[Rfam]
RNA sequence: UAAUAAAAACAUUGAUUACGUCGUAUAAUAUUGGGGAUAUGGCCCAAAAGUUUCUACCAAGCUGCCGUAAAUGGCUUGACUACGAGGUAUUUCGGAUAAAGG
Numbered sequence: 001u002a003a004u005a006a007a008a009a010c011a012u013u014g015a016u017u018a019c020g021u022c023g024u025a026u027a028a029u030a031u032u033g034g035g036g037a038u039a040u041g042g043c044c045c046a047a048a049a050g051u052u053u054c055u056a057c058c059a060a061g062c063u064g065c066c067g068u069a070a071a072u073g074g075c076u077u078g079a080c081u082a083c084g085a086g087g088u089a090u091u092u093c094g095g096a097u098a099a100a101g102g
Stems, first nucleotide, its partner, number of pairs: 018088002021085005029049001031047005058078007